[Rfam]
RNA: FMN riboswitch aptamer (RFN element)
Organism: Truepera radiovictrix
RNA sequence: AUAUUCCUUCGGGGCAGGGUGAAAGUCCCUACCGGCGGUACAGUCCGCGAAGCCCGCGCAAUCGAGGCGAUAAAGCCGCGCCCGGGCCCGAUCCGGUGAAACUCCGGAACCGACGGUGACAGUCCGGAUGAGAGAAGGAGGUU
Numbered sequence: 001a002u003a004u005u006c007c008u009u010c011g012g013g014g015c016a017g018g019g020u021g022a023a024a025g026u027c028c029c030u031a032c033c034g035g036c037g038g039u040a041c042a043g044u045c046c047g048c049g050a051a052g053c054c055c056g057c058g059c060a061a062u063c064g065a066g067g068c069g070a071u072a073a074a075g076c077c078g079c080g081c082c083c084g085g086g087c088c089c090g091a092u093c094c095g096g097u098g099a100a101a102c103u104c105c106g107g108a109a110c111c112g113a114c115g116g117u118g119a120c121a122g123u124c125c126g127g128a129u130g131a132g133a134g135a136a137g138g139a140g141g142u143u
Base pairs, nucleotide, nucleotide: 004140005139006138007137008136009135010134017029018028019027031123032122033112034111035048036047037046038045043110044109052087053086054085055084056083092108093107094106095105096104114126115125116124